A member of the RNA family "Small nucleolar RNA snR80" from Lophiostoma macrostomum, 151 nucleotides long. The family has 6 seed sequences and 447 matches in Rfam 15.1. Rfam classes the family as an H/ACA-box small nucleolar RNA. The match comes from Rfam's covariance-model search (46 bits).

[Rfam]
RNA sequence: CUCACUUUACCAACACUCUGGCCCUUACCUUCUCUGCGGAGAACUCAUGGUAUAGGCCUAUUUUGGCGUAAAGAAGAUCAACGGCCUUUUACUCACCGCGGUACUCUUGCCUUUGGUUUGGGUUCAGCGGUCCAUCAACUUUGGCCAACAU
Numbered sequence: 001c002u003c004a005c006u007u008u009a010c011c012a013a014c015a016c017u018c019u020g021g022c023c024c025u026u027a028c029c030u031u032c033u034c035u036g037c038g039g040a041g042a043a044c045u046c047a048u049g050g051u052a053u054a055g056g057c058c059u060a061u062u063u064u065g066g067c068g069u070a071a072a073g074a075a076g077a078u079c080a081a082c083g084g085c086c087u088u089u090u091a092c093u094c095a096c097c098g099c100g101g102u103a104c105u106c107u108u109g110c111c112u113u114u115g116g117u118u119u120g121g122g123u124u125c126a127g128c129g130g131u132c133c134a135u136c137a138a139c140u141u142u143g144g145c146c147a148a149c150a151u
Stems, first nucleotide, its partner, number of pairs: 007071003020058004026052004083146004096130004101125001103123001105122003